This 373-nucleotide sequence from Leptolyngbya sp. BL0902 belongs to the Rfam family "Bacterial RNase P class A". Taxonomically the source falls in Leptolyngbya (Bacteria, Bacillati, Cyanobacteriota, Cyanophyceae). Pairs were carried over by alignment from the consensus structure, which is taken from published work. The match comes from Rfam's covariance-model search (259 bits). Rfam classes the family as a ribozyme.

[Rfam]
RNA sequence: GGAGUUGGCGAGGUGGUUGCGGGCUGGCUGCGGCUGGCCUGAGGAAAGUCCGGGCUCCCGAAAGACCAAACUUGCUGGGUAACGCCCAGUGCGGGCGACCGUGAGGAUAGUGCCACAGAAACAUACCGCCGAUGGCCUUGGGGUGUCUCCAGGCACAGGUAAGGGUGCAAGGGUGCGGUAAGAGCGCACCAGCAGCAUCGAGAGGUGCUGGCUCGGUAAACCCCGGUUGGGAGCAAGGUCGAAGGGGCAAGGGUUGGUCUUUUUCCUGUCCCGUCUUUGUGUACCGCAUGAGGCGGCUGGUAACAGUCGUCCCAGAUAGAUAACCGCCCCCCGGCAACGGGGAACAGAACCCGGCUUAUGCCCAACUCCUUCC
Numbered sequence: 001g002g003a004g005u006u007g008g009c010g011a012g013g014u015g016g017u018u019g020c021g022g023g024c025u026g027g028c029u030g031c032g033g034c035u036g037g038c039c040u041g042a043g044g045a046a047a048g049u050c051c052g053g054g055c056u057c058c059c060g061a062a063a064g065a066c067c068a069a070a071c072u073u074g075c076u077g078g079g080u081a082a083c084g085c086c087c088a089g090u091g092c093g094g095g096c097g098a099c100c101g102u103g104a105g106g107a108u109a110g111u112g113c114c115a116c117a118g119a120a121a122c123a124u125a126c127c128g129c130c131g132a133u134g135g136c137c138u139u140g141g142g143g144u145g146u147c148u149c150c151a152g153g154c155a156c157a158g159g160u161a162a163g164g165g166u167g168c169a170a171g172g173g174u175g176c177g178g179u180a181a182g183a184g185c186g187c188a189c190c191a192g193c194a195g196c197a198u199c200g201a202g203a204g205g206u207g208c209u210g211g212c213u214c215g216g217u218a219a220a221c222c223c224c225g226g227u228u229g230g231g232a233g234c235a236a237g238g239u240c241g242a243a244g245g246g247g248c249a250a251g252g253g254u255u256g257g258u259c260u261u262u263u264u265c266c267u268g269u270c271c272c273g274u275c276u277u278u279g280u281g282u283a284c285c286g287c288a289u290g291a292g293g294c295g296g297c298u299g300g301u302a303a304c305a306g307u308c309g310u311c312c313c314a315g316a317u318a319g320a321u322a323a324c325c326g327c328c329c330c331c332c333g334g335c336a337a338c339g340g341g342g343a344a345c346a347g348a349a350c351c352c353g354g355c356u357u358a359u360g361c362c363c364a365a366c367u368c369c370u371u372c373c
Stems, first nucleotide, its partner, number of pairs: 001369008011359001012328007020041009046357003050354005055233004064265002069228003073225002075089005090104001091102004105223002110221002112217003126164002128160003133155002136152001172190006192212001193210007237285003247276001249274001251272002256270003292311008